c-di-AMP riboswitch aptamer (ydaO/yuaA leader): a 170-nucleotide sequence from an Alicyclobacillaceae bacterium.
Lineage of the source: Bacteria > Bacillati > Bacillota > Bacilli > Alicyclobacillaceae.
It scores 68 bits against the family's covariance model.
About the family: This family represents a conserved RNA structure found upstream of the ydaO and yuaA genes in Bacillus subtilis and related genes in other bacteria. The ydaO/yuaA element is thought to act as a genetic 'off' switch for the ydaO and yuaA genes in its native state. It is believed that the element may be triggered during osmotic shock leading to activation of ydaO, a predicted amino acid transporter gene, and members of the yuaA-yubG operon which code for KtrA and KtrB K+ transporters.
RNA sequence: ACGCCACUUCAGCCGAAUCGUCUAUGUUAUAGAUGUACGGGGGAUUUUUGUUGCUGAGCGAAGCACUUGGCAAAGUUCAGCACUUGGGGUGAAUUUGGUUCUUGCCAAACAGGCGUUCUCGACCGCCUGAACCCGACAACUAACCUCGGAGGCAAACUGUGAGAGGGAGA
Numbered sequence: 001a002c003g004c005c006a007c008u009u010c011a012g013c014c015g016a017a018u019c020g021u022c023u024a025u026g027u028u029a030u031a032g033a034u035g036u037a038c039g040g041g042g043g044a045u046u047u048u049u050g051u052u053g054c055u056g057a058g059c060g061a062a063g064c065a066c067u068u069g070g071c072a073a074a075g076u077u078c079a080g081c082a083c084u085u086g087g088g089g090u091g092a093a094u095u096u097g098g099u100u101c102u103u104g105c106c107a108a109a110c111a112g113g114c115g116u117u118c119u120c121g122a123c124c125g126c127c128u129g130a131a132c133c134c135g136a137c138a139a140c141u142a143a144c145c146u147c148g149g150a151g152g153c154a155a156a157c158u159g160u161g162a163g164a165g166g167g168a169g170a
Stems, first nucleotide, its partner, number of pairs: 012153003019035007038148005047086001087134003095108004111128004